[Rfam]
RNA sequence: UUGCUGCGGGGCCGGCAGCGUUAUUGACCCUGGGCGCACGGAGAGCUGGCUGAAGCCGACUCCCACCGGCUGUGCAGUAAAGACUUCCCGGCUCUGCCUUCUUCACUGGGUUAUCCGCAGCCGGGCUCCGGCCCCAGGUAAUACACAU
Numbered sequence: 001u002u003g004c005u006g007c008g009g010g011g012c013c014g015g016c017a018g019c020g021u022u023a024u025u026g027a028c029c030c031u032g033g034g035c036g037c038a039c040g041g042a043g044a045g046c047u048g049g050c051u052g053a054a055g056c057c058g059a060c061u062c063c064c065a066c067c068g069g070c071u072g073u074g075c076a077g078u079a080a081a082g083a084c085u086u087c088c089c090g091g092c093u094c095u096g097c098c099u100u101c102u103u104c105a106c107u108g109g110g111u112u113a114u115c116c117g118c119a120g121c122c123g124g125g126c127u128c129c130g131g132c133c134c135c136a137g138g139u140a141a142u143a144c145a146c147a148u
Base pairs, nucleotide, nucleotide: 013020014019037091040088041087042086044085045084047080050077051076052075054073057072058071060069061068106131107130114125115124116123117122
The record is a 148-nucleotide RNA from Chrysochloris asiatica, which matches "Human acetyl-coA cholesterol acyltransferase mRNA" in Rfam. Rfam links the family to the GO term regulation of translational initiation. It is annotated as a cis-regulatory element. A search with the family's covariance model found it, with a score of 39 bits. The literature on the family includes a 2008 paper in Cell Res by Chen et al., "RNA secondary structures located in the interchromosomal region of human ACAT1 chimeric mRNA are required to produce the 56-kDa isoform". The base pairs follow the family's consensus structure, which is taken from published work.